[Rfam]
RNA: Ribosomal protein L10 leader
RNA sequence: UAAAUAAAUAUCGCUAUACCGUAGACAGUAGGUGCUUGUAAAAGCUUAAAUCCCUACCGAGGUGUAUUUACGAAUAAAGCAUUUGUUUGCUUGUUGUUGUAUAUACAAACCUCCAUGUCUAUCGUGGAGGUUUUUCCAUGCAGCC
Numbered sequence: 001u002a003a004a005u006a007a008a009u010a011u012c013g014c015u016a017u018a019c020c021g022u023a024g025a026c027a028g029u030a031g032g033u034g035c036u037u038g039u040a041a042a043a044g045c046u047u048a049a050a051u052c053c054c055u056a057c058c059g060a061g062g063u064g065u066a067u068u069u070a071c072g073a074a075u076a077a078a079g080c081a082u083u084u085g086u087u088u089g090c091u092u093g094u095u096g097u098u099g100u101a102u103a104u105a106c107a108a109a110c111c112u113c114c115a116u117g118u119c120u121a122u123c124g125u126g127g128a129g130g131u132u133u134u135u136c137c138a139u140g141c142a143g144c145c
Base pairs, nucleotide, nucleotide: 028057029056030055031054032053034045035044036043110130111129112128113127114126115125116124117123